[Rfam]
About this RNA:
The record is a 76-nucleotide RNA from Cebus imitator, which matches "mir-320 microRNA precursor family" in Rfam. The literature on the family includes a 2006 paper in Genome Res by Berezikov et al., "Many novel mammalian microRNA candidates identified by extensive cloning and RAKE analysis". Lineage of the source: Eukaryota > Opisthokonta > Chordata > Theria > Cebus. Rfam links the family to the GO terms RISC complex, long-term synaptic potentiation and negative regulation of gene expression. Rfam 15.1 lists 659 matches to the family in 129 species.

RNA sequence: CCUCCACAGCGCCUUCCCUUUCUAGUUCUCCCCAGAGUCGGGAGAAGCUGGGUUGAGAGGGUGAAGAGAAAAGCAA
Numbered sequence: 001c002c003u004c005c006a007c008a009g010c011g012c013c014u015u016c017c018c019u020u021u022c023u024a025g026u027u028c029u030c031c032c033c034a035g036a037g038u039c040g041g042g043a044g045a046a047g048c049u050g051g052g053u054u055g056a057g058a059g060g061g062u063g064a065a066g067a068g069a070a071a072a073g074c075a076a
Stems, first nucleotide, its partner, number of pairs: 014059003018055001021052005029044001031042003